RNA: RAGATH-32 RNA
Organism: Legionella adelaidensis
RNA sequence: GUGGCUGGACGUUCAGUCGGGAAAACCAUCUAGGAAACUCUGUCAUUCGAUAGAGCAACUCCCUUGCGGGGUUUAAGUCA
Number, nucleotide and partner (000 for none) at each position: 001g000002u000003g000004g000005c000006u000007g000008g000009a000010c000011g000012u000013u000014c000015a000016g000017u000018c000019g000020g000021g000022a000023a000024a000025a000026c000027c000028a000029u000030c000031u000032a000033g000034g000035a000036a000037a000038c055039u054040c053041u052042g051043u050044c049045a000046u000047u000048c000049g044050a043051u042052a041053g040054a039055g038056c000057a073058a072059c071060u070061c069062c068063c000064u000065u000066g000067c000068g062069g061070g060071g059072u058073u057074u000075a000076a000077g000078u000079c000080a000